[Rfam]
RNA sequence: GGGGGCGAUCUUGGUUUCGACGGGGGUUGCGAAGCAGAUGCGGGCAUACCGGGGUCUCAGAUUUCCCGUAAAACACUGAACGAAAAUAGUCGCAAACGACGAAUCUUACGCACUGGCCGCCUAAGGCCUGCCGUUGCAGCAGCUUGUCAAUGGGCUGUGCGGGGCAACCCGCCGCAACGUCAUCCCACAUUGACUGGUUUUCCGCCGGGUUACUUGGCGGGAAAUAAGAUCUAAGGUAACUGGUUUCCCGAGAGCCCGUCUGCCGGCGCGAGGGGAACAAGAUUCCAAGUUGGCAAGACUAAGUAUGUAGAACGCUUUGUAGAGGACUUUCGGACGGGGGUUCAAUUCCCCCCGCCUCCACCA
Numbered sequence: 001g002g003g004g005g006c007g008a009u010c011u012u013g014g015u016u017u018c019g020a021c022g023g024g025g026g027u028u029g030c031g032a033a034g035c036a037g038a039u040g041c042g043g044g045c046a047u048a049c050c051g052g053g054g055u056c057u058c059a060g061a062u063u064u065c066c067c068g069u070a071a072a073a074c075a076c077u078g079a080a081c082g083a084a085a086a087u088a089g090u091c092g093c094a095a096a097c098g099a100c101g102a103a104u105c106u107u108a109c110g111c112a113c114u115g116g117c118c119g120c121c122u123a124a125g126g127c128c129u130g131c132c133g134u135u136g137c138a139g140c141a142g143c144u145u146g147u148c149a150a151u152g153g154g155c156u157g158u159g160c161g162g163g164g165c166a167a168c169c170c171g172c173c174g175c176a177a178c179g180u181c182a183u184c185c186c187a188c189a190u191u192g193a194c195u196g197g198u199u200u201u202c203c204g205c206c207g208g209g210u211u212a213c214u215u216g217g218c219g220g221g222a223a224a225u226a227a228g229a230u231c232u233a234a235g236g237u238a239a240c241u242g243g244u245u246u247c248c249c250g251a252g253a254g255c256c257c258g259u260c261u262g263c264c265g266g267c268g269c270g271a272g273g274g275g276a277a278c279a280a281g282a283u284u285c286c287a288a289g290u291u292g293g294c295a296a297g298a299c300u301a302a303g304u305a306u307g308u309a310g311a312a313c314g315c316u317u318u319g320u321a322g323a324g325g326a327c328u329u330u331c332g333g334a335c336g337g338g339g340g341u342u343c344a345a346u347u348c349c350c351c352c353c354g355c356c357u358c359c360a361c362c363a
Stems, first nucleotide, its partner, number of pairs: 001359007021332008034320005040315003045307005050068005057079004113130001116127003132179006140157001146194007197225009208241006243278007252269001254267003258299004262294003336352005
A member of the RNA family "transfer-messenger RNA" from Neisseria bacilliformis, 363 nucleotides long.
NCBI's taxonomy places the organism under Bacteria, Pseudomonadota, Neisseriales, Neisseriaceae, Neisseria bacilliformis.
The family's consensus secondary structure is taken from published work.
The match comes from Rfam's covariance-model search (197 bits).
Rfam describes the family as follows. Bacterial tmRNA, also known as 10Sa RNA or SsrA, is named for its dual tRNA and mRNA-like properties. Its role is to liberate the mRNA from a stalled ribosome.
Rfam classes the family as a non-coding RNA gene.
The literature on the family includes a 1996 paper in RNA by Williams and Bartel, "Phylogenetic analysis of tmRNA secondary structure".